[Rfam]
RNA: PyrR binding site
Organism: Planococcus halotolerans
RNA sequence: AACACCUUUAAAAACAGUCCAGAGAGGCUGAGAAGGUAUUUACGCAAGCCGGAAGUCUGUCUUCCGUGCUGGAAUUUUCUGCGCAUAUAACCUCCUGCCCUCUGGCAGGAGGUUUUUUAUUU
Number, nucleotide and partner (000 for none) at each position: 001a000002a000003c000004a037005c036006c035007u034008u033009u032010a000011a000012a000013a000014a000015c030016a029017g028018u027019c026020c000021a000022g000023a000024g000025a000026g019027g018028c017029u016030g015031a000032g009033a008034a007035g006036g005037u004038a000039u000040u000041u000042a000043c066044g065045c000046a063047a062048g061049c000050c059051g058052g057053a000054a000055g000056u000057c052058u051059g050060u000061c048062u047063u046064c000065c044066g043067u000068g000069c000070u000071g000072g000073a000074a000075u000076u000077u000078u000079c000080u000081g000082c000083g000084c000085a000086u000087a116088u000089a114090a113091c112092c111093u110094c109095c108096u107097g106098c105099c104100c000101u000102c000103u000104g099105g098106c097107a096108g095109g094110a093111g092112g091113u090114u089115u000116u087117u000118u000119a000120u000121u000122u000